[Rfam]
RNA sequence: UAUUAAGAUAAAAUACAUUUUAUUGUGUUAAAAAUAUUUUUUUUCAUUGCUACAGCAACAAAGUCUAAUCUAUUCUGGUGCUCUCCUCUAUGAGACAAGCCGUUAUAUAGACUUAGACAGU
Numbered sequence: 001u002a003u004u005a006a007g008a009u010a011a012a013a014u015a016c017a018u019u020u021u022a023u024u025g026u027g028u029u030a031a032a033a034a035u036a037u038u039u040u041u042u043u044u045c046a047u048u049g050c051u052a053c054a055g056c057a058a059c060a061a062a063g064u065c066u067a068a069u070c071u072a073u074u075c076u077g078g079u080g081c082u083c084u085c086c087u088c089u090a091u092g093a094g095a096c097a098a099g100c101c102g103u104u105a106u107a108u109a110g111a112c113u114u115a116g117a118c119a120g121u
Stems, first nucleotide, its partner, number of pairs: 005044002007038004012029006061114007071107003076102004082095004

Record summary
Small nucleolar RNA SNORA28: a 121-nucleotide RNA sequence from Myotis davidii. The family's consensus secondary structure was predicted with RNAfold. Rfam links the family to the GO terms RNA processing and nucleolus. By type it is an H/ACA-box small nucleolar RNA.